Record summary:
A member of the RNA family "RNase MRP" from Phaseolus vulgaris, 226 nucleotides long. It scores 90 bits against the family's covariance model. Clan: RNaseP clan. From the family's description: RNase MRP is an enzymatically active ribonucleoprotein with two distinct roles in eukaryotes. The base pairs follow the family's consensus structure, which is taken from published work. The source organism's lineage runs through Eukaryota, Embryophyta, Spermatophyta, rosids and Phaseolus.
RNA sequence: GGAUUAUGAGGCGAUGUGAUUGGGCCCAUGCUAAUUGCUGGGCUCAGGAAAGUCCCCGGGCCUCCUCUGCAGAAAUGCAGGCCCUGUAAUGGGUAUCUUUGAGUUGGGAUUUGCGGCUGAGACACGUGUGGAGCCUAUGCAAUUCCAACCUGAGAAUUUGGCCGAUCUUACAGUCAUUCACAUGGUCAGCUUUGACUAACUGAACGGGGCUUACGUCCUCGUAAUC
Numbered sequence: 001g002g003a004u005u006a007u008g009a010g011g012c013g014a015u016g017u018g019a020u021u022g023g024g025c026c027c028a029u030g031c032u033a034a035u036u037g038c039u040g041g042g043c044u045c046a047g048g049a050a051a052g053u054c055c056c057c058g059g060g061c062c063u064c065c066u067c068u069g070c071a072g073a074a075a076u077g078c079a080g081g082c083c084c085u086g087u088a089a090u091g092g093g094u095a096u097c098u099u100u101g102a103g104u105u106g107g108g109a110u111u112u113g114c115g116g117c118u119g120a121g122a123c124a125c126g127u128g129u130g131g132a133g134c135c136u137a138u139g140c141a142a143u144u145c146c147a148a149c150c151u152g153a154g155a156a157u158u159u160g161g162c163c164g165a166u167c168u169u170a171c172a173g174u175c176a177u178u179c180a181c182a183u184g185g186u187c188a189g190c191u192u193u194g195a196c197u198a199a200c201u202g203a204a205c206g207g208g209g210c211u212u213a214c215g216u217c218c219u220c221g222u223a224a225u226c
Base pairs, nucleotide, nucleotide: 002226003225004224005223006222007221008220009219010218011217014183015182016181017180018179019178021046022045023044024043025042026041027040050212051211052210054209055208056207057206068079069078070077071076081094082093083092084091096155097154098153103149104148105147106146107145111142112141113140114139115135116134117133124129185196186195187194188193